[Rfam]
RNA sequence: UACGUGCUCCGGGGUCGGUGCAAUUCCGAACCGGCGGUCAAAGUCCGCGAACCGGCGAGCAGAUCAUCCGUGAGGAUGCUCAGCUCGCUGGCCGAUCCGGUGGAAUUCCGGAACCGACAGUCACAGUCUGGAUGAGAGGCAGCACGGG
Numbered sequence: 001u002a003c004g005u006g007c008u009c010c011g012g013g014g015u016c017g018g019u020g021c022a023a024u025u026c027c028g029a030a031c032c033g034g035c036g037g038u039c040a041a042a043g044u045c046c047g048c049g050a051a052c053c054g055g056c057g058a059g060c061a062g063a064u065c066a067u068c069c070g071u072g073a074g075g076a077u078g079c080u081c082a083g084c085u086c087g088c089u090g091g092c093c094g095a096u097c098c099g100g101u102g103g104a105a106u107u108c109c110g111g112a113a114c115c116g117a118c119a120g121u122c123a124c125a126g127u128c129u130g131g132a133u134g135a136g137a138g139g140c141a142g143c144a145c146g147g148g
Stems, first nucleotide, its partner, number of pairs: 003146006009139002016028003030127002032116002034048004043114002052091009096112005118130003